[Rfam]
RNA sequence: AGGGGAUAUCGCGGUCUCCCCUUCAGAUGCAGUCGCCAUCCAAGCGCCGU
Numbered sequence: 001a002g003g004g005g006a007u008a009u010c011g012c013g014g015u016c017u018c019c020c021c022u023u024c025a026g027a028u029g030c031a032g033u034c035g036c037c038a039u040c041c042a043a044g045c046g047c048c049g050u
Stems, first nucleotide, its partner, number of pairs: 001022006011050005026040004

Annotation
The family of this 50-nucleotide RNA sequence is "chrB-b RNA". Rfam classes the family as a cis-regulatory element.